[Rfam]
RNA sequence: UGGAACCGCGCGGGAGAGCGCCUCCUUACAGGGGGCCGCCGAAGGAGCAACCACCCCGGAAUCUCUCAGGCAAAAGGACCGCGCGGGUCGC
Dot-bracket structure: .....((((((((......((((.........)))).(((((..(((...((.....))...))))).))).......)))))))).....
Numbered sequence: 001u002g003g004a005a006c007c008g009c010g011c012g013g014g015a016g017a018g019c020g021c022c023u024c025c026u027u028a029c030a031g032g033g034g035g036c037c038g039c040c041g042a043a044g045g046a047g048c049a050a051c052c053a054c055c056c057c058g059g060a061a062u063c064u065c066u067c068a069g070g071c072a073a074a075a076g077g078a079c080c081g082c083g084c085g086g087g088u089c090g091c
Stems, first nucleotide, its partner, number of pairs: 006086008020036004038071003041067002045065003051059002